[Rfam]
RNA sequence: AAUGAGUUGUUUUGUCGCUUUUCAUUAUAGGUCAUAUGGGACUUUUUUUCUACACAAAAUAGGCUCCAUAAUAUCCAUAGGGGAUUUACUCACUAUGGAUAUUAUGGAGCC
Numbered sequence: 001a002a003u004g005a006g007u008u009g010u011u012u013u014g015u016c017g018c019u020u021u022u023c024a025u026u027a028u029a030g031g032u033c034a035u036a037u038g039g040g041a042c043u044u045u046u047u048u049u050c051u052a053c054a055c056a057a058a059a060u061a062g063g064c065u066c067c068a069u070a071a072u073a074u075c076c077a078u079a080g081g082g083g084a085u086u087u088a089c090u091c092a093c094u095a096u097g098g099a100u101a102u103u104a105u106g107g108a109g110c111c
Stems, first nucleotide, its partner, number of pairs: 001026006009018002029044005062111005068105008078095003082091002
RNA: Streptococcus RNA 266
Organism: Streptococcus pneumoniae